Nucleotides: 155
Base pairs, nucleotide, nucleotide: 020039021038022037023036024035025034026033027032048080049079050078051077052076057069058068059067060066081097082096083095084094085093101145102142103141104140105139113130114129115128116127117126118125119124
Number, partner (000 for none) and nucleotide at each position: 001000a002000u003000a004000a005000a006000a007000a008000a009000a010000c011000a012000a013000g014000c015000g016000c017000c018000a019000g020039a021038g022037c023036c024035c025034a026033g027032c028000u029000u030000g031000u032027g033026c034025u035024g036023g037022g038021u039020u040000g041000a042000c043000g044000a045000g046000g047000a048080g049079a050078g051077g052076g053000a054000a055000g056000a057069u058068c059067g060066a061000a062000u063000u064000u065000u066060u067059c068058g069057g070000c071000g072000g073000a074000u075000g076052c077051c078050c079049u080048c081097c082096g083095g084094c085093c086000c087000g088000g089000u090000c091000a092000c093085g094084g095083c096082c097081g098000c099000a100000g101145c102142g103141u104140a105139g106000a107000a108000c109000a110000a111000a112000u113130c114129c115128g116127g117126g118125a119124g120000g121000c122000a123000a124119c125118u126117u127116c128115c129114g130113g131000g132000c133000c134000a135000a136000a137000a138000a139105c140104u141103a142102c143000a144000g145101g146000u147000g148000a149000c150000c151000a152000g153000c154000a155000g